[Rfam]
The family of this 63-nucleotide RNA sequence from Thermodesulfobium narugense is "Fluoride riboswitch aptamer (crcB RNA motif)". A search with the family's covariance model found it, with a score of 44 bits. Pairs were carried over by alignment from the consensus structure, which is taken from published work.

RNA sequence: AAAAAUAUCGGUGAUGGAGUUCACCGUAAUGCCCCAUAGAUGGCUGAUGACUCCUAGUAUAUU
Numbered sequence: 001a002a003a004a005a006u007a008u009c010g011g012u013g014a015u016g017g018a019g020u021u022c023a024c025c026g027u028a029a030u031g032c033c034c035c036a037u038a039g040a041u042g043g044c045u046g047a048u049g050a051c052u053c054c055u056a057g058u059a060u061a062u063u
Base pairs, nucleotide, nucleotide: 010025011024012023013022016054017053018052019051020050021049031044032043033042